[Rfam]
RNA sequence: UAUUCUAUUCGUAGGAAGAAAGAGAAGCGGAUUUAUUCUAUACUCGAUAAGUACCAAUAGGCAAUGGGG
Numbered sequence: 001u002a003u004u005c006u007a008u009u010c011g012u013a014g015g016a017a018g019a020a021a022g023a024g025a026a027g028c029g030g031a032u033u034u035a036u037u038c039u040a041u042a043c044u045c046g047a048u049a050a051g052u053a054c055c056a057a058u059a060g061g062c063a064a065u066g067g068g069g
Stems, first nucleotide, its partner, number of pairs: 003022002006019001008017003043068003052059002
Rfam assigns this 69-nucleotide RNA sequence from Capsicum annuum to the family "Plastid-clpP 5UTR RNA". The base pairs follow the family's consensus structure, which was predicted with LocARNA. The organism belongs to Capsicum, within Eukaryota. It scores 81 bits against the family's covariance model. Rfam classes the family as a cis-regulatory element. The literature on the family includes a 2023 paper in Plant Commun by Richter et al., "Retrograde signaling in plants: A critical review focusing on the GUN pathway and beyond".